[Rfam]
RNA sequence: GGAUAUGAGGGCAAUCUGGCUGUGAAGUUUGAUAUGCCAUUGAUUGCAUGGGUUGAUUUGGCUGAUCUGGCUAGUUUAGGCAGGUGUUCCCUUUCUUCCUCAGCAUUCCAUGUGUGUUCCUCCUGGUGCUGUGUGCUUGGCUAAUGAGGACAGCCUCCCCAAUAGACAUGGUAUUGUUCAUUGGCCAAAGGGGUGUGGUAGCUGUGCUCCCCUGCUGGAAGCUGUAAGUGAGCUCAAGGUCCAUUUGUAAAUGAAUGUAGGGUAAUCAAGCAUGCAACACUGAAUAUUCAUCCAAAUGAGAAGCUGGAUGUAGCAGUCUGCCAGUGGUU
Number, nucleotide and partner (000 for none) at each position: 001g109002g108003a107004u000005a000006u102007g101008a100009g099010g098011g097012c000013a094014a093015u000016c000017u000018g091019g090020c000021u000022g000023u000024g088025a087026a000027g085028u084029u083030u082031g081032a000033u079034a000035u074036g000037c070038c069039a068040u000041u000042g067043a066044u065045u064046g062047c061048a000049u000050g000051g000052g000053u000054u000055g000056a000057u000058u000059u000060g000061g047062c046063u000064g045065a044066u043067c042068u039069g038070g037071c000072u000073a000074g035075u000076u000077u000078a000079g033080g000081c031082a030083g029084g028085u027086g000087u025088u024089c000090c019091c018092u000093u014094u013095c000096u000097u011098c010099c009100u008101c007102a006103g000104c000105a000106u000107u003108c002109c001110a000111u000112g000113u000114g000115u000116g000117u171118u170119c000120c000121u166122c165123c140124u139125g138126g137127u000128g136129c135130u000131g000132u000133g000134u000135g129136c128137u126138u125139g124140g123141c000142u161143a000144a000145u000146g000147a000148g158149g157150a156151c000152a000153g000154c000155c000156u150157c149158c148159c000160c000161a142162a000163u000164a000165g122166a121167c000168a000169u000170g118171g117172u000173a000174u000175u000176g000177u000178u000179c000180a000181u000182u000183g000184g000185c000186c000187a000188a000189a000190g000191g000192g000193g000194u000195g000196u000197g000198g000199u000200a000201g271202c270203u269204g000205u000206g000207c000208u264209c000210c262211c261212c260213u259214g258215c257216u000217g000218g000219a000220a000221g000222c253223u000224g000225u250226a000227a000228g248229u247230g246231a245232g244233c000234u000235c000236a000237a000238g000239g000240u000241c000242c000243a000244u232245u231246u230247g229248u228249a000250a225251a000252u000253g222254a000255a000256u000257g215258u214259a213260g212261g211262g210263u000264a208265a000266u000267c000268a000269a203270g202271c201272a000273u000274g000275c000276a000277a000278c000279a000280c000281u000282g000283a000284a000285u000286a000287u000288u000289c000290a000291u000292c000293c000294a329295a328296a000297u000298g000299a000300g322301a000302a000303g317304c316305u315306g314307g000308a000309u000310g000311u000312a000313g000314c306315a305316g304317u303318c000319u000320g000321c000322c300323a000324g000325u000326g000327g000328u295329u294
7SK RNA: a 329-nucleotide RNA sequence from Dicaeum eximium. 7SK was discovered as an abundant small nuclear RNA in the mid-70s but a possible function has only recently been suggested. Two independent studies have found that 7SK RNA binds the CDK9/cyclin T complex (known as elongation factor P-TEFb). The literature on the family includes a 2002 paper in Curr Biol by Blencowe, "Transcription: surprising role for an elusive small nuclear RNA". Its Rfam clan is "7SK clan". A search with the family's covariance model found it, with a score of 180 bits. The family's RNA type in Rfam is non-coding RNA gene.